[Rfam]
RNA sequence: AUAAUAAAAUUUAAGACUACUUAUAUAGGUUCAUAAUCGGAUGGACGUUUCUACCAACUACCGGAAUAGUUGACUAUAAGUAUCUGCAGAGGUAUC
Numbered sequence: 001a002u003a004a005u006a007a008a009a010u011u012u013a014a015g016a017c018u019a020c021u022u023a024u025a026u027a028g029g030u031u032c033a034u035a036a037u038c039g040g041a042u043g044g045a046c047g048u049u050u051c052u053a054c055c056a057a058c059u060a061c062c063g064g065a066a067u068a069g070u071u072g073a074c075u076a077u078a079a080g081u082a083u084c085u086g087c088a089g090a091g092g093u094a095u096c
Stems, first nucleotide, its partner, number of pairs: 018082008029046006055072006
A member of the RNA family "Purine riboswitch aptamer" from Clostridium sp. D5, 96 nucleotides long. The match comes from Rfam's covariance-model search (54 bits). Riboswitches are metabolite binding domains within certain messenger RNAs that serve as precision sensors for their corresponding targets.